[Rfam]
RNA: t44 RNA
RNA sequence: CACUAUGUAUUUUUAAUACUCACGUCUGUCGACACGAUUGAUGGGGUGCUGGUUUUAGGCAAGUUUGCCUGGGCCGGUCAUCAGUCGGGACAGUACGGAGGCGUAAC
Numbered sequence: 001c002a003c004u005a006u007g008u009a010u011u012u013u014u015a016a017u018a019c020u021c022a023c024g025u026c027u028g029u030c031g032a033c034a035c036g037a038u039u040g041a042u043g044g045g046g047u048g049c050u051g052g053u054u055u056u057a058g059g060c061a062a063g064u065u066u067g068c069c070u071g072g073g074c075c076g077g078u079c080a081u082c083a084g085u086c087g088g089g090a091c092a093g094u095a096c097g098g099a100g101g102c103g104u105a106a107c
Stems, first nucleotide, its partner, number of pairs: 023097003026093005035087009048078008